RNA: Group II catalytic intron D1-D4-3
Organism: Enterocloster bolteae
RNA sequence: CAUAUCGUGAGAUGUGGGCGAGAAGAAGGGAUAGCGAAAUCGUAGCCCUACGGACAGAAACCUGAUAAUAAGGCGUGCAUGGCGGGUAAGUUGGCUUAAAGCAACGAAGCCCUAAAGGUAGCCGUAACCUAUGUGCGUAAAUUAGGAGGGUAGACGAGGAAAGAACACG
Numbered sequence: 001c002a003u004a005u006c007g008u009g010a011g012a013u014g015u016g017g018g019c020g021a022g023a024a025g026a027a028g029g030g031a032u033a034g035c036g037a038a039a040u041c042g043u044a045g046c047c048c049u050a051c052g053g054a055c056a057g058a059a060a061c062c063u064g065a066u067a068a069u070a071a072g073g074c075g076u077g078c079a080u081g082g083c084g085g086g087u088a089a090g091u092u093g094g095c096u097u098a099a100a101g102c103a104a105c106g107a108a109g110c111c112c113u114a115a116a117g118g119u120a121g122c123c124g125u126a127a128c129c130u131a132u133g134u135g136c137g138u139a140a141a142u143u144a145g146g147a148g149g150g151u152a153g154a155c156g157a158g159g160a161a162a163g164a165a166c167a168c169g
Stems, first nucleotide, its partner, number of pairs: 001016006029168001035163001040157004045151005061146006073138003077134006084112004090105004